[Rfam]
RNA sequence: GCGAAACGUAAGAAGUUCGAAAAUAUUAUAACACAAAAGCCCACUCUACUGCGAAUAGAGUGGGCUU
Numbered sequence: 001g002c003g004a005a006a007c008g009u010a011a012g013a014a015g016u017u018c019g020a021a022a023a024u025a026u027u028a029u030a031a032c033a034c035a036a037a038a039g040c041c042c043a044c045u046c047u048a049c050u051g052c053g054a055a056u057a058g059a060g061u062g063g064g065c066u067u
Base pairs, nucleotide, nucleotide: 007019008018037067038066039065040064041063042062043061044060045059046058047057048056
RNA: Enterococcus sRNA A9
Organism: Periweissella fabalis